[Rfam]
About this RNA
Rfam assigns this 439-nucleotide part of an RNA from Puccinia coronata to the family "Archaeal large subunit ribosomal RNA". The family has 91 seed sequences and 2,955 matches in Rfam 15.1. The source organism's lineage runs through Eukaryota, Basidiomycota, Pucciniomycetes, Pucciniales and Puccinia coronata var. avenae. A search with the family's covariance model found it, with a score of 1396 bits.
RNA sequence: GGAAGUAGCAAAUAUUCAAGUGAGAACCUUGAAGACUGAAGUGGGGAAGGAUUCCAUGGUAACAGCAGUUGGACAUGGGUUAGUUGGUCCUAAGAAAUAGGGAACUUCCGUUUUAAAGAAAUGCUCUUGUUAGCAUCCACCUAUUGAAAGGGAAUGUAGUUAAAAUUCUACAACUGGGAUACAGAUUUUGAACGGCAACGUGAAUGAACUUGGUGACGUCUGCAGGGGCCCCAGGAAGAGUUUUCUUUUCUCCUUAACAAUCUAAAACCCUGGAAGCGAAUUAUUCGGAGAUAGGGUUUAAUGAUUGGUAGAGCUUUACACCUCUGUAAAGUCUGGUGUGUCCUUGAGGAUCCUUGAAAAACCAAGGGAUUGAAAAAGUCUUGUACCCAGCCGUACCAAUAUCCGCAUCAGGUCCCCAAGGUGAUCAGCCUCUGGUCAA
Number, nucleotide and partner (000 for none) at each position: 001g000002g000003a000004a000005g000006u000007a000008g000009c000010a000011a000012a000013u000014a000015u033016u032017c031018a030019a029020g028021u000022g000023a000024g000025a000026a000027c000028c020029u019030u018031g017032a016033a015034g437035a436036c435037u434038g000039a000040a000041g000042u000043g417044g416045g415046g414047a000048a000049g397050g396051a000052u000053u000054c078055c077056a076057u075058g074059g000060u000061a000062a000063c071064a070065g000066c000067a000068g000069u000070u064071g063072g000073a000074c058075a057076u056077g055078g054079g000080u000081u000082a000083g000084u000085u393086g392087g391088u000089c151090c150091u000092a000093a000094g000095a000096a145097a144098u143099a142100g141101g140102g138103a000104a000105c000106u000107u000108c000109c000110g000111u000112u000113u000114u000115a000116a000117a000118g000119a000120a000121a000122u000123g000124c000125u000126c000127u000128u000129g000130u000131u000132a000133g000134c000135a000136u000137c000138c102139a000140c101141c100142u099143a098144u097145u096146g000147a000148a000149a000150g090151g089152g000153a000154a000155u172156g171157u170158a169159g168160u000161u000162a000163a000164a000165a000166u000167u000168c159169u158170a157171c156172a155173a000174c000175u389176g388177g387178g386179a000180u385181a384182c383183a382184g000185a000186u000187u000188u000189u000190g000191a000192a000193c000194g000195g000196c000197a000198a000199c000200g000201u000202g000203a000204a000205u000206g000207a000208a000209c000210u000211u000212g363213g362214u361215g000216a000217c000218g351219u350220c349221u348222g000223c346224a345225g343226g342227g000228g000229c338230c000231c336232c335233a334234g254235g253236a000237a251238g250239a249240g000241u000242u000243u000244u000245c000246u000247u000248u000249u239250c238251u237252c000253c235254u234255u000256a000257a000258c307259a306260a305261u304262c000263u000264a000265a000266a000267a297268c296269c295270c294271u293272g292273g000274a000275a000276g000277c287278g286279a285280a000281u000282u000283a000284u000285u279286c278287g277288g000289a000290g000291a000292u272293a271294g270295g269296g268297u267298u000299u000300a000301a000302u000303g000304a261305u260306u259307g258308g000309u000310a000311g000312a000313g000314c000315u000316u000317u000318a000319c326320a000321c000322c000323u000324c000325u000326g319327u000328a000329a000330a000331g000332u000333c000334u233335g232336g231337u000338g229339u000340g000341u000342c226343c225344u000345u224346g223347a000348g221349g220350a219351u218352c000353c000354u000355u000356g000357a000358a000359a000360a000361a214362c213363c212364a000365a000366g000367g000368g000369a000370u000371u000372g000373a000374a000375a000376a000377a000378g000379u000380c000381u000382u183383g182384u181385a180386c178387c177388c176389a175390g000391c087392c086393g085394u000395a000396c050397c049398a000399a000400u000401a000402u000403c412404c411405g000406c000407a000408u000409c000410a000411g404412g403413u000414c046415c045416c044417c043418a000419a431420g430421g429422u000423g000424a000425u000426c000427a000428g000429c421430c420431u419432c000433u000434g037435g036436u035437c034438a000439a000